[Rfam]
RNA sequence: GAGUCACAGGACGAAGUGGAUGGAUCAAGGCCUUGCAAGCUCAAAAGGCUUGUGGGCCAGGAUUCAGGAAAGUCCCCGGGCCUUAAUCCGUAGAAAUUACGGGCUCGGAAACGAGUUCUACUUCAAGCGUGGUAAUCAGUUCAUCUCUUUGAGAUGAGGGGCUGAGACGUGUGUGGAGCCUUUGGUGCUGCCUGAAGUAUAUUUGCCGAAAUUCACAGUUAUCCACUUGGUCCUUAAUGGACUAACUGAACGGGGAUUAUGAUCCUGUGACU
Numbered sequence: 001g002a003g004u005c006a007c008a009g010g011a012c013g014a015a016g017u018g019g020a021u022g023g024a025u026c027a028a029g030g031c032c033u034u035g036c037a038a039g040c041u042c043a044a045a046a047g048g049c050u051u052g053u054g055g056g057c058c059a060g061g062a063u064u065c066a067g068g069a070a071a072g073u074c075c076c077c078g079g080g081c082c083u084u085a086a087u088c089c090g091u092a093g094a095a096a097u098u099a100c101g102g103g104c105u106c107g108g109a110a111a112c113g114a115g116u117u118c119u120a121c122u123u124c125a126a127g128c129g130u131g132g133u134a135a136u137c138a139g140u141u142c143a144u145c146u147c148u149u150u151g152a153g154a155u156g157a158g159g160g161g162c163u164g165a166g167a168c169g170u171g172u173g174u175g176g177a178g179c180c181u182u183u184g185g186u187g188c189u190g191c192c193u194g195a196a197g198u199a200u201a202u203u204u205g206c207c208g209a210a211a212u213u214c215a216c217a218g219u220u221a222u223c224c225a226c227u228u229g230g231u232c233c234u235u236a237a238u239g240g241a242c243u244a245a246c247u248g249a250a251c252g253g254g255g256a257u258u259a260u261g262a263u264c265c266u267g268u269g270a271c272u
Stems, first nucleotide, its partner, number of pairs: 002272010014228006021066006028051007070258002074255004089101004102117006119199003123195003127191002135186003149178001167174002230242004
Dot-bracket structure: .((((((((((..((((((.((((((.(((((((..........))))))).........))))))...[[..[[[[...........((((.....))))((((((....)))))).(((.(((.((......(((...........(.................((....))...).....)))...)).))).))).......................)))))).((((.....)))).........]]]].]]....))))))))))

The family of this 272-nucleotide RNA from Thalictrum thalictroides is "RNase MRP". Taxonomically the source falls in Thalictrum (Eukaryota, Streptophytina, Tracheophyta, Spermatophyta). About the family: RNase MRP is an enzymatically active ribonucleoprotein with two distinct roles in eukaryotes. Gene Ontology terms of the family: ribonuclease MRP complex, ribonuclease MRP activity and rRNA processing. The family's consensus secondary structure is taken from published work.